[Rfam]
RNA sequence: GUGCCUUAAACUAAUGAGUAAGGAAAACAAAGUGCCCGGGCGACGCCGGGCGCGGCGCAUGACUCCUGUCAUGCGCACUGAAUUUUUGGGGGGUUAAAAGGCUGGCCGGGUGUUGACGCUGCUUACUUCGCAGAACUCACCUGAGCGGGCCUCCCAGCCC
Numbered sequence: 001g002u003g004c005c006u007u008a009a010a011c012u013a014a015u016g017a018g019u020a021a022g023g024a025a026a027a028c029a030a031a032g033u034g035c036c037c038g039g040g041c042g043a044c045g046c047c048g049g050g051c052g053c054g055g056c057g058c059a060u061g062a063c064u065c066c067u068g069u070c071a072u073g074c075g076c077a078c079u080g081a082a083u084u085u086u087u088g089g090g091g092g093g094u095u096a097a098a099a100g101g102c103u104g105g106c107c108g109g110g111u112g113u114u115g116a117c118g119c120u121g122c123u124u125a126c127u128u129c130g131c132a133g134a135a136c137u138c139a140c141c142u143g144a145g146c147g148g149g150c151c152u153c154c155c156a157g158c159c160c
Stems, first nucleotide, its partner, number of pairs: 004023005032053008055076007091160005099152005105146001107143002110140003119133004